[Rfam]
Record summary
A member of the RNA family "Selenocysteine transfer RNA" from Notodromas monacha, 86 nucleotides long. The source organism's lineage runs through Eukaryota, Metazoa, Panarthropoda, Cypridoidea and Notodromas. Clan: tRNA clan. The literature on the family includes a 2000 paper in FEBS Lett by Mizutani and Goto, "Eukaryotic selenocysteine tRNA has the 9/4 secondary structure". It scores 80 bits against the family's covariance model.
RNA sequence: GCUCGGAUGAACUUCGGUGGUCCGGAGUGCAGGCUUCAAACCUGUAGGUGACGAAAGUCACAGUGGUUCGAUUCCACCUUCCGAGC
Numbered sequence: 001g002c003u004c005g006g007a008u009g010a011a012c013u014u015c016g017g018u019g020g021u022c023c024g025g026a027g028u029g030c031a032g033g034c035u036u037c038a039a040a041c042c043u044g045u046a047g048g049u050g051a052c053g054a055a056a057g058u059c060a061c062a063g064u065g066g067u068u069c070g071a072u073u074c075c076a077c078c079u080u081c082c083g084a085g086c
Stems, first nucleotide, its partner, number of pairs: 001086007009078001012027006028046006048061005063077004